[Rfam]
RNA sequence: UCGUGGGUCGGCCCGCCGUCGAGGACCCGGCGGGCCGGGGGAUGCCGCCGCCUCAAUCCCCGCGGGCGGCGGCGACGUCCGGGAGGGCAUGCGGAUGCCCUCCCGGGCCGAG
Numbered sequence: 001u002c003g004u005g006g007g008u009c010g011g012c013c014c015g016c017c018g019u020c021g022a023g024g025a026c027c028c029g030g031c032g033g034g035c036c037g038g039g040g041g042a043u044g045c046c047g048c049c050g051c052c053u054c055a056a057u058c059c060c061c062g063c064g065g066g067c068g069g070c071g072g073c074g075a076c077g078u079c080c081g082g083g084a085g086g087g088c089a090u091g092c093g094g095a096u097g098c099c100c101u102c103c104c105g106g107g108c109c110g111a112g
Stems, first nucleotide, its partner, number of pairs: 001111002009037010038043001045072009077108014